[Rfam]
RNA sequence: GUAGGUUAUGGCGACGUGUACCCAAGAAGCGUCGGAGGGAAGUUAGGAGGACUGAUGUGUGUCCUGUGUGGCUUUAUUGUCCUGGCCAUACCUUCACCCGCCAUCGUAGCUAAC
Numbered sequence: 001g002u003a004g005g006u007u008a009u010g011g012c013g014a015c016g017u018g019u020a021c022c023c024a025a026g027a028a029g030c031g032u033c034g035g036a037g038g039g040a041a042g043u044u045a046g047g048a049g050g051a052c053u054g055a056u057g058u059g060u061g062u063c064c065u066g067u068g069u070g071g072c073u074u075u076a077u078u079g080u081c082c083u084g085g086c087c088a089u090a091c092c093u094u095c096a097c098c099c100g101c102c103a104u105c106g107u108a109g110c111u112a113a114c
Stems, first nucleotide, its partner, number of pairs: 001114002004111002007108005013102001015100002018097002037077001039075002049063002
Rfam assigns this 114-nucleotide RNA from Branchiostoma belcheri to the family "Potassium channel RNA editing signal". The family's consensus secondary structure is taken from published work. Gene Ontology term of the family: adenosine to inosine editing. The match comes from Rfam's covariance-model search (52 bits). NCBI's taxonomy places the organism under Eukaryota, Opisthokonta, Amphioxiformes, Branchiostomatidae, Branchiostoma.